[Rfam]
RNA sequence: GGUUCCUGUGCCUGCUGUGCUGAUAAUCAGUGUGACGUUGGCUGGCUCAGUUCAGCAGGAACAGGAG
Numbered sequence: 001g002g003u004u005c006c007u008g009u010g011c012c013u014g015c016u017g018u019g020c021u022g023a024u025a026a027u028c029a030g031u032g033u034g035a036c037g038u039u040g041g042c043u044g045g046c047u048c049a050g051u052u053c054a055g056c057a058g059g060a061a062c063a064g065g066a067g
Base pairs, nucleotide, nucleotide: 003067004066005065006064008062009061011059012058013057015055016054017053019051020050021049022048023047027045028044029043030042031041
A member of the RNA family "mir-24 microRNA precursor family" from Etheostoma spectabile, 67 nucleotides long. The family's consensus secondary structure was predicted with RNAalifold. It scores 67 bits against the family's covariance model. Rfam 15.1 lists 1,372 matches to the family in 601 species. This family represents the microRNA (miRNA) mir-24 family. miRNAs are transcribed as ~70nt precursors (modelled here) and subsequently processed by the Dicer enzyme to give a ~22nt product. A reference for the family is Ambros (2001), "microRNAs: tiny regulators with great potential", Cell.